[Rfam]
RNA sequence: ACUUCCAUGACGAUUAUCUCAUUGACUUUCGUUCUUCUGAGGUUUCUGAAGCAACUUGUUUUUCUGAGAAGU
Number, nucleotide and partner (000 for none) at each position: 001a072002c071003u070004u000005c068006c000007a000008u000009g000010a000011c000012g000013a000014u000015u000016a000017u000018c000019u000020c000021a000022u000023u000024g000025a000026c000027u000028u000029u000030c000031g000032u000033u000034c000035u000036u000037c000038u000039g000040a000041g000042g000043u000044u000045u000046c000047u000048g000049a000050a000051g000052c000053a000054a000055c000056u000057u000058g000059u000060u000061u000062u000063u000064c000065u000066g000067a000068g005069a000070a003071g002072u001
Shown here is a 72-nucleotide RNA from Xenopus tropicalis, a member of the family "Small nucleolar RNA SNORD59". The base pairs follow the family's consensus structure, which was predicted with ILM. Rfam links the family to the GO terms RNA processing and nucleolus. A reference for the family is Galardi et al. (2002), "Purified box C/D snoRNPs are able to reproduce site-specific 2'-O-methylation of target RNA in vitro", Mol Cell Biol. By type it is a C/D-box small nucleolar RNA. Clan: SNORD59 clan. Rfam 15.1 lists 1,355 matches to the family in 620 species. A search with the family's covariance model found it, with a score of 71 bits.